[Rfam]
RNA: Purine riboswitch aptamer
Organism: Bacillus sp. T33-2
RNA sequence: GAUAAUAGAUGAUAUUUCCUUCGUAUAAUAAUGGGGAUAUGGCCCAUGAGUUUCUACCCAAUAACCGUAAAUUAUUGGACUAUGAGGGAGAGUAGUCGGAAU
Numbered sequence: 001g002a003u004a005a006u007a008g009a010u011g012a013u014a015u016u017u018c019c020u021u022c023g024u025a026u027a028a029u030a031a032u033g034g035g036g037a038u039a040u041g042g043c044c045c046a047u048g049a050g051u052u053u054c055u056a057c058c059c060a061a062u063a064a065c066c067g068u069a070a071a072u073u074a075u076u077g078g079a080c081u082a083u084g085a086g087g088g089a090g091a092g093u094a095g096u097c098g099g100a101a102u
Stems, first nucleotide, its partner, number of pairs: 018088008029049001031047005058078007